[Rfam]
RNA: Saccharopolyspora sRNA 350
Organism: Alloactinosynnema sp. L-07
Nucleotides: 508
Base pairs, nucleotide, nucleotide: 006390007389008388009387011385013384015382016381017380019328022325023324025322026321027320028319032316033315036312037311040308041307042306045305048302049301050300051299052298054233055232058229059228060227061226062225063224066110068108075103077102079100082097083096085094086093117222118221122217123216127212130209131206132205133204134203135202136201138199140197144195150191155187157185159183160178161177166174167173235295236294237293240290241289243287244286245285249283250282252280254278256277257276258275260271262269329342330341331340351379353377354376355375356374357373362370363369391431392430394428395427396426397425400422403418405416407415437476439474440473443470445468446467448464449463451461452460477507478506480503481502484499486497487496488495
Number, partner (000 for none) and nucleotide at each position: 001000u002000g003000c004000g005000c006390g007389g008388u009387g010000u011385a012000c013384g014000c015382c016381c017380a018000c019328g020000u021000c022325g023324c024000c025322u026321c027320g028319g029000c030000c031000g032316u033315c034000g035000a036312c037311a038000g039000g040308a041307u042306c043000u044000c045305g046000u047000c048302g049301c050300c051299g052298a053000u054233g055232u056000g057000a058229u059228c060227g061226c062225c063224g064000u065000c066110g067000g068108c069000c070000a071000g072000c073000a074000c075103g076000c077102c078000c079100a080000g081000c082097g083096u084000c085094g086093u087000u088000c089000g090000g091000u092000c093086g094085c095000c096083g097082u098000a099000g100079u101000c102077g103075c104000c105000c106000g107000u108068g109000g110066c111000c112000a113000g114000c115000u116000u117222g118221u119000g120000c121000a122217c123216c124000u125000u126000g127212c128000c129000g130209u131206g132205g133204g134203c135202g136201a137000u138199g139000a140197g141000g142000a143000c144195g145000a146000g147000c148000c149000g150191g151000u152000c153000g154000a155187c156000c157185g158000a159183c160178c161177c162000a163000c164000c165000c166174u167173g168000c169000u170000c171000c172000a173167c174166a175000a176000u177161g178160g179000a180000c181000u182000c183159g184000c185157c186000u187155g188000c189000g190000g191150c192000g193000u194000a195144c196000u197140c198000g199138c200000g201136u202135u203134g204133c205132u206131c207000g208000a209130a210000g211000c212127g213000g214000u215000u216123g217122g218000c219000c220000a221118g222117c223000u224063c225062g226061g227060c228059g229058a230000g231000c232055a233054c234000c235295u236294c237293c238000g239000c240290g241289u242000c243287g244286u245285c246000g247000a248000a249283u250282c251000c252280g253000c254278g255000c256277a257276g258275c259000g260271g261000g262269g263000c264000c265000a266000g267000u268000u269262c270000g271260c272000g273000c274000a275258g276257c277256u278254c279000c280252u281000c282250g283249g284000g285245g286244a287243u288000c289241a290240c291000c292000c293237g294236g295235a296000c297000c298052u299051c300050g301049g302048c303000c304000c305045c306042g307041g308040u309000g310000g311037u312036g313000a314000c315033g316032a317000a318000c319028u320027c321026g322025a323000c324023g325022c326000g327000c328019c329342c330341g331340u332000c333000g334000c335000c336000g337000a338000c339000a340331g341330u342329g343000u344000g345000g346000g347000u348000g349000c350000g351379g352000c353377g354376g355375c356374g357373g358000u359000u360000g361000a362370c363369c364000c365000g366000g367000u368000a369363g370362g371000c372000g373357c374356c375355g376354c377353c378000c379351u380017u381016g382015g383000c384013c385011u386000c387009c388008a389007c390006c391431c392430a393000c394428g395427g396426c397425a398000g399000g400422g401000u402000g403418c404000g405416c406000a407415g408000c409000a410000g411000c412000c413000a414000g415407c416405g417000g418403g419000a420000g421000c422400u423000g424000a425397u426396g427395c428394c429000c430392u431391g432000c433000a434000u435000c436000u437476g438000g439474g440473g441000a442000a443470c444000c445468g446467a447000c448464u449463u450000g451461g452460u453000g454000g455000u456000c457000g458000u459000c460452g461451c462000g463449a464448g465000a466000u467446u468445u469000c470443g471000c472000g473440c474439c475000g476437c477507c478506g479000c480503c481502g482000u483000g484499c485000u486497c487496a488495g489000a490000c491000u492000c493000a494000a495488u496487u497486g498000u499484g500000u501000u502481u503480g504000u505000u506478c507477g508000g